[Rfam]
RNA sequence: AGGUCACAAUCAACAUUCAUUGCUGUCGGUGGGUUUAACUAUGUGGACAAGCUCACUGAACAAUGAAUAAAACUAGGAGAGG
Number, nucleotide and partner (000 for none) at each position: 001a000002g000003g000004u080005c079006a000007c077008a000009a000010u000011c000012a000013a000014c000015a068016u067017u066018c065019a064020u063021u062022g061023c000024u000025g000026u059027c058028g057029g056030u055031g054032g000033g052034u051035u050036u049037a000038a000039c000040u000041a000042u000043g000044u000045g000046g000047a000048c000049a036050a035051g034052c033053u000054c031055a030056c029057u028058g027059a026060a000061c022062a021063a020064u019065g018066a017067a016068u015069a000070a000071a000072a000073c000074u000075a000076g000077g007078a000079g005080a004081g000082g000
RNA: mir-181 microRNA precursor family
Organism: Malurus cyaneus